Shown here is a 72-nucleotide sequence from Plectus sambesii, a member of the family "Small nucleolar RNA SNORD2". Lineage of the source: Eukaryota > Ecdysozoa > Nematoda > Plectidae > Plectus. Gene Ontology terms of the family: nucleolus and RNA processing. The match comes from Rfam's covariance-model search (44 bits). It is annotated as a C/D-box small nucleolar RNA.

[Rfam]
RNA sequence: CAUCGCGAUGAUUUCAUACCAUCUUUCGGGGCUGAACCAUCAUGUUGAUAGCCUUACUUUUGCUGAGCGAUG
Numbered sequence: 001c002a003u004c005g006c007g008a009u010g011a012u013u014u015c016a017u018a019c020c021a022u023c024u025u026u027c028g029g030g031g032c033u034g035a036a037c038c039a040u041c042a043u044g045u046u047g048a049u050a051g052c053c054u055u056a057c058u059u060u061u062g063c064u065g066a067g068c069g070a071u072g
Stems, first nucleotide, its partner, number of pairs: 001072006